[Rfam]
The family of this 139-nucleotide RNA from Digitaria exilis is "Small nucleolar RNA Z247".
Its family is annotated with nucleolus and RNA processing in the Gene Ontology.
Taxonomically the source falls in Digitaria (Eukaryota, Viridiplantae, Streptophyta, Streptophytina).
It is annotated as a C/D-box small nucleolar RNA.
RNA sequence: CCUCUCGGCGACGACGAGGUCAUCUCCCACGUCCUCCUCAGCCUCGACUCUGACUACAACCCCAUCGCUCCCUCCAUCCACACGAGGGCUGAGCACAUCAGGCUUGAUGAAUUCUACUCUCUACUCCUUAGCUUUGAGA
Numbered sequence: 001c002c003u004c005u006c007g008g009c010g011a012c013g014a015c016g017a018g019g020u021c022a023u024c025u026c027c028c029a030c031g032u033c034c035u036c037c038u039c040a041g042c043c044u045c046g047a048c049u050c051u052g053a054c055u056a057c058a059a060c061c062c063c064a065u066c067g068c069u070c071c072c073u074c075c076a077u078c079c080a081c082a083c084g085a086g087g088g089c090u091g092a093g094c095a096c097a098u099c100a101g102g103c104u105u106g107a108u109g110a111a112u113u114c115u116a117c118u119c120u121c122u123a124c125u126c127c128u129u130a131g132c133u134u135u136g137a138g139a
Stems, first nucleotide, its partner, number of pairs: 004138005088108001090106004